RNA sequence: AAUAAAGCUACGCUUAAUUUUCGGCUUAUCGCCGAAAAGCGGGGGAACCAGUCAAUUGGGGCGAAUCGUUCGAUGUAAGGAACGUAGGGUACCAUCUUACCCGAGUCCGUCAGCUAACCUCGUCAGCAGUGGAUGGGUCUA
Numbered sequence: 001a002a003u004a005a006a007g008c009u010a011c012g013c014u015u016a017a018u019u020u021u022c023g024g025c026u027u028a029u030c031g032c033c034g035a036a037a038a039g040c041g042g043g044g045g046a047a048c049c050a051g052u053c054a055a056u057u058g059g060g061g062c063g064a065a066u067c068g069u070u071c072g073a074u075g076u077a078a079g080g081a082a083c084g085u086a087g088g089g090u091a092c093c094a095u096c097u098u099a100c101c102c103g104a105g106u107c108c109g110u111c112a113g114c115u116a117a118c119c120u121c122g123u124c125a126g127c128a129g130u131g132g133a134u135g136g137g138u139c140u141a
Base pairs, nucleotide, nucleotide: 012127013126014125018038019037020036021035022034023033024032025031039123040122041121042120043119044118049058050057059108060107061106067084068083069082070081087102088101089100090099

This 141-nucleotide RNA sequence from Paenibacillus lycopersici belongs to the Rfam family "c-di-AMP riboswitch aptamer (ydaO/yuaA leader)". The match comes from Rfam's covariance-model search (84 bits).